[Rfam]
RNA sequence: CGAACGGUUCCCUAGGGUUCCGCGAGAUUCGGCCGUGCGAGCCGGAUCCGGUCUGGACCGAGAGGGAACGCGCGACCGCACGGGGCGGCCGCGUACACGGAGGGACAAAAGCCCGGGAGUA
Numbered sequence: 001c002g003a004a005c006g007g008u009u010c011c012c013u014a015g016g017g018u019u020c021c022g023c024g025a026g027a028u029u030c031g032g033c034c035g036u037g038c039g040a041g042c043c044g045g046a047u048c049c050g051g052u053c054u055g056g057a058c059c060g061a062g063a064g065g066g067a068a069c070g071c072g073c074g075a076c077c078g079c080a081c082g083g084g085g086c087g088g089c090c091g092c093g094u095a096c097a098c099g100g101a102g103g104g105a106c107a108a109a110a111g112c113c114c115g116g117g118a119g120u121a
Stems, first nucleotide, its partner, number of pairs: 007069006015059002020056002022053001023050002070094005076088004096116001098119001102114003
Guanidine-I riboswitch aptamer: a 121-nucleotide RNA from Cohnella zeiphila.
A search with the family's covariance model found it, with a score of 76 bits.